[Rfam]
RNA sequence: UGGCGGGGGAGCACUACAACCGGAGGAGCCUGCGGUUUAAUUGGACUCAACGCCGGACAUCUCACCAGCAUCGACAGUGUGCAGUGAAAGUCAGUGUGAUGAGCUUACUGGAGCCACUGAGAGGAGGUGCAUGGCCGCCGUCAGCUCGUACCGUGAGGCGUCCUGUUAAGUCAGGCAACGAGCGAGACCCGCACCCUUAAUUGCCAGCAACACCCUUGAGGUGGUUGGGUACAUUAAGAGGACUGCCAGUGCCAAACUGGAGGAAGGAACGGGCAACGGUAGGUCAGUAUGCCCCGAAUGUGCUGGGCUACACGCGGGCUACAAUGGUCGAGACAGUGGGAUGCAACGCCGAGAGGCGACGCUAAUCUCCGAAACUCGAUCGUAGUUCGGAUUGCGGGCUGAAACUCGCCCGCAUGAAGCUGGAUUCGGUAGUAAUCGCGCCUCAGAAGGGCGCGGUGAAUACGUCCCCACCUGGCUGUAUCCUCAUUCUGAACAAAGACA
Numbered sequence: 001u002g003g004c005g006g007g008g009g010a011g012c013a014c015u016a017c018a019a020c021c022g023g024a025g026g027a028g029c030c031u032g033c034g035g036u037u038u039a040a041u042u043g044g045a046c047u048c049a050a051c052g053c054c055g056g057a058c059a060u061c062u063c064a065c066c067a068g069c070a071u072c073g074a075c076a077g078u079g080u081g082c083a084g085u086g087a088a089a090g091u092c093a094g095u096g097u098g099a100u101g102a103g104c105u106u107a108c109u110g111g112a113g114c115c116a117c118u119g120a121g122a123g124g125a126g127g128u129g130c131a132u133g134g135c136c137g138c139c140g141u142c143a144g145c146u147c148g149u150a151c152c153g154u155g156a157g158g159c160g161u162c163c164u165g166u167u168a169a170g171u172c173a174g175g176c177a178a179c180g181a182g183c184g185a186g187a188c189c190c191g192c193a194c195c196c197u198u199a200a201u202u203g204c205c206a207g208c209a210a211c212a213c214c215c216u217u218g219a220g221g222u223g224g225u226u227g228g229g230u231a232c233a234u235u236a237a238g239a240g241g242a243c244u245g246c247c248a249g250u251g252c253c254a255a256a257c258u259g260g261a262g263g264a265a266g267g268a269a270c271g272g273g274c275a276a277c278g279g280u281a282g283g284u285c286a287g288u289a290u291g292c293c294c295c296g297a298a299u300g301u302g303c304u305g306g307g308c309u310a311c312a313c314g315c316g317g318g319c320u321a322c323a324a325u326g327g328u329c330g331a332g333a334c335a336g337u338g339g340g341a342u343g344c345a346a347c348g349c350c351g352a353g354a355g356g357c358g359a360c361g362c363u364a365a366u367c368u369c370c371g372a373a374a375c376u377c378g379a380u381c382g383u384a385g386u387u388c389g390g391a392u393u394g395c396g397g398g399c400u401g402a403a404a405c406u407c408g409c410c411c412g413c414a415u416g417a418a419g420c421u422g423g424a425u426u427c428g429g430u431a432g433u434a435a436u437c438g439c440g441c442c443u444c445a446g447a448a449g450g451g452c453g454c455g456g457u458g459a460a461u462a463c464g465u466c467c468c469c470a471c472c473u474g475g476c477u478g479u480a481u482c483c484u485c486a487u488u489c490u491g492a493a494c495a496a497a498g499a500c501a
Base pairs, nucleotide, nucleotide: 001478002477003476004475007473008472009471011469016465017464020429021428022427023426024425025322027320028319029318030317031316032315033314034313035311036310041056042055043054044053065306066305067304068303069302070301071300075119076118077117078116081114082113089109090108091107093105094104095103123295124294126293127292128291129290132289133288134284135283136282137280138279139278140277144183145182146181147180148179149178151158152157162175163174164173165172189272190271191270194240196238197237198236199235200234204229205228208227209226210225211223212222213221214220243263244262246260247259248258249257250256326381327380328379329378330377331376332375338369339368340367343362344361347358348357349356350355388419393414394413395412396411397410398409399408435457436456437455438454439453440452441451442450